MIR2670 microRNA precursor family: a 199-nucleotide sequence from Medicago truncatula.
Nucleotides: 199
Base pairs, nucleotide, nucleotide: 003197004196005195007193008192009191010190011189012188013187014186015185016184017183018182019181020180023177026174028172029171030170031169032168033167034166035165038160039159040158041157042153043152044151046149048147049146050145052143053142054141055140057138058137059136060135061134062133063132064131065130067128068127069126070125071124072123073122074118075117077115078114079113084104085103086102087101088100089099090098091097092096
Number, partner (000 for none) and nucleotide at each position: 001000u002000c003197g004196g005195g006000a007193u008192a009191a010190a011189a012188u013187a014186g015185u016184g017183a018182g019181u020180a021000a022000c023177c024000g025000a026174c027000c028172u029171g030170g031169g032168g033167a034166a035165g036000u037000g038160a039159u040158c041157a042153a043152c044151c045000c046149u047000a048147g049146g050145g051000a052143u053142a054141a055140g056000u057138u058137u059136a060135a061134a062133u063132c064131u065130g066000c067128u068127u069126u070125u071124u072123u073122u074118a075117c076000u077115c078114c079113a080000u081000a082000a083000a084104c085103u086102u087101u088100u089099u090098a091097c092096c093000g094000u095000g096092g097091g098090u099089a100088a101087a102086a103085a104084g105000a106000u107000u108000u109000u110000u111000c112000u113079u114078g115077g116000u117075g118074u119000a120000u121000a122073a123072a124071a125070a126069a127068a128067a129000c130065c131064a132063g133062a134061u135060u136059u137058a138057a139000a140055u141054u142053u143052a144000g145050c146049u147048c148000a149046a150000g151044g152043g153042u154000u155000g156000a157041u158040g159039a160038u161000g162000u163000a164000u165035u166034u167033u168032u169031c170030c171029c172028a173000u174026g175000a176000a177023g178000a179000c180020u181019g182018c183017u184016c185015a186014u187013u188012a189011u190010u191009u192008u193007a194000c195005c196004c197003c198000a199000c
Lineage of the source: Eukaryota > Streptophyta > Magnoliopsida > Trifolieae > Medicago. The family's consensus secondary structure was predicted with RNAalifold. Rfam 15.1 lists 188 matches to the family in 2 species. The match comes from Rfam's covariance-model search (185 bits).